[Rfam]
RNA: DUF805 RNA
Organism: Bacteroides graminisolvens
RNA sequence: UACAAGUAGAGUCCAGAAACUACUAUUUCUUAAUUAAACGGGGCGUAUCCGAAAAGCCUAUGAGUAGGAACUAA
Number, nucleotide and partner (000 for none) at each position: 001u000002a000003c000004a000005a000006g023007u022008a021009g020010a000011g000012u000013c000014c000015a000016g000017a000018a000019a000020c009021u008022a007023c006024u000025a000026u000027u000028u000029c000030u000031u000032a000033a000034u000035u000036a000037a000038a000039c000040g000041g000042g058043g057044c056045g000046u000047a000048u000049c068050c067051g000052a000053a000054a000055a000056g044057c043058c042059u000060a000061u000062g000063a000064g000065u000066a000067g050068g049069a000070a000071c000072u000073a000074a000